Rfam assigns this 135-nucleotide sequence from Helicobacter canadensis to the family "purD RNA motif". The match comes from Rfam's covariance-model search (63 bits). Rfam links the family to the GO term regulation of gene expression. A reference for the family is Weinberg et al. (2007), "Identification of 22 candidate structured RNAs in bacteria using the CMfinder comparative genomics pipeline", Nucleic Acids Res. By type it is a cis-regulatory element.

RNA sequence: AUAGAUUUUUUUGUGUGAUGGUGUUUUCGCUAUUAGUCUCUUAAGUUGAGACGAGAAUCUGCCGCCUAAUAAAAAACUUAUGGCUAGAAUCCUUAAAUUUUUAGGGCUUACACAAUUAUAAGCGCCCACUUGGGU
Numbered sequence: 001a002u003a004g005a006u007u008u009u010u011u012u013g014u015g016u017g018a019u020g021g022u023g024u025u026u027u028c029g030c031u032a033u034u035a036g037u038c039u040c041u042u043a044a045g046u047u048g049a050g051a052c053g054a055g056a057a058u059c060u061g062c063c064g065c066c067u068a069a070u071a072a073a074a075a076a077c078u079u080a081u082g083g084c085u086a087g088a089a090u091c092c093u094u095a096a097a098u099u100u101u102u103a104g105g106g107c108u109u110a111c112a113c114a115a116u117u118a119u120a121a122g123c124g125c126c127c128a129c130u131u132g133g134g135u
Base pairs, nucleotide, nucleotide: 003079004078007076008075009074010073011072019064020063021062022061023060026057027056028055036052037051038050039049094110095109096108098106099105